[Rfam]
RNA sequence: GGUCGAUGAUGUUACUAAUAUAUUUGCUACUCUUGAUUGGGAAAUCCCAUUUGAUGAUUCUCUAACCACCAAGAUCUCUGAGGCC
Numbered sequence: 001g002g003u004c005g006a007u008g009a010u011g012u013u014a015c016u017a018a019u020a021u022a023u024u025u026g027c028u029a030c031u032c033u034u035g036a037u038u039g040g041g042a043a044a045u046c047c048c049a050u051u052u053g054a055u056g057a058u059u060c061u062c063u064a065a066c067c068a069c070c071a072a073g074a075u076c077u078c079u080g081a082g083g084c085c
Stems, first nucleotide, its partner, number of pairs: 001085004
Shown here is an 85-nucleotide RNA from Carnegiea gigantea, a member of the family "Small nucleolar RNA SNORD24". On this family, see Qu et al., Nucleic Acids Res 1995: "U24, a novel intron-encoded small nucleolar RNA with two 12 nt long, phylogenetically conserved complementarities to 28S rRNA". NCBI's taxonomy places the organism under Eukaryota, Pentapetalae, Caryophyllales, Cactaceae, Carnegiea.